Shown here is a 92-nucleotide sequence from Polymorphospora rubra, a member of the family "ZMP/ZTP riboswitch aptamer (pfl RNA motif)". The organism belongs to Polymorphospora, within Bacteria. The base pairs follow the family's consensus structure, which is taken from published work. The match comes from Rfam's covariance-model search (51 bits).
[Rfam]
RNA sequence: UCCCCGGGCCGUGACUGGCGCGCUGGGAUGGGCACAACCAUCGGGGAGCGGCCCCGUCACCACGACGAAUGCCGAGCGCCUGGGCCCUCAAC
Numbered sequence: 001u002c003c004c005c006g007g008g009c010c011g012u013g014a015c016u017g018g019c020g021c022g023c024u025g026g027g028a029u030g031g032g033c034a035c036a037a038c039c040a041u042c043g044g045g046g047a048g049c050g051g052c053c054c055c056g057u058c059a060c061c062a063c064g065a066c067g068a069a070u071g072c073c074g075a076g077c078g079c080c081u082g083g084g085c086c087c088u089c090a091a092c
Base pairs, nucleotide, nucleotide: 004056006054007053008052009051010050011049012048015045016044017080018079019078020077021076028041029040030039031038071085072084073083